[Rfam]
RNA sequence: UGUGCACUUUGUUGUACGUCGCUCUGGAUAAGAGCGUCUGCUAAAUGCCACGUA
Numbered sequence: 001u002g003u004g005c006a007c008u009u010u011g012u013u014g015u016a017c018g019u020c021g022c023u024c025u026g027g028a029u030a031a032g033a034g035c036g037u038c039u040g041c042u043a044a045a046u047g048c049c050a051c052g053u054a
Stems, first nucleotide, its partner, number of pairs: 013043001014041003020036006

The record is a 54-nucleotide RNA sequence from Conger conger, which matches "UnaL2 LINE 3' element" in Rfam. The family's consensus secondary structure is taken from published work. Gene Ontology term of the family: transposition, RNA-mediated. The match comes from Rfam's covariance-model search (62 bits).